[Rfam]
RNA sequence: UGAGUGUUAUGAUGAUGGUUGCCUACACCAGGUAACUUAGUCUAGCUCUGGUCUACCGUCAGGCUUGUCCUGACGGU
Numbered sequence: 001u002g003a004g005u006g007u008u009a010u011g012a013u014g015a016u017g018g019u020u021g022c023c024u025a026c027a028c029c030a031g032g033u034a035a036c037u038u039a040g041u042c043u044a045g046c047u048c049u050g051g052u053c054u055a056c057c058g059u060c061a062g063g064c065u066u067g068u069c070c071u072g073a074c075g076g077u
Stems, first nucleotide, its partner, number of pairs: 002048004011042003017037006055077009